RNA: mir-263 microRNA precursor family
Organism: Pseudolycoriella hygida
RNA sequence: AUCGUACUCGGAAUGGCACUGGAAGAAUUCACGGGGUUUAUUUGACAUACCCGUGGUCUCUUAGUGGCAUCACGAGUGCAAG
Numbered sequence: 001a002u003c004g005u006a007c008u009c010g011g012a013a014u015g016g017c018a019c020u021g022g023a024a025g026a027a028u029u030c031a032c033g034g035g036g037u038u039u040a041u042u043u044g045a046c047a048u049a050c051c052c053g054u055g056g057u058c059u060c061u062u063a064g065u066g067g068c069a070u071c072a073c074g075a076g077u078g079c080a081a082g
Base pairs, nucleotide, nucleotide: 004079005078006077007076008075009074010073013070014069015068017066018065020063021062022061023059025058026057029056030055031054032053033052034051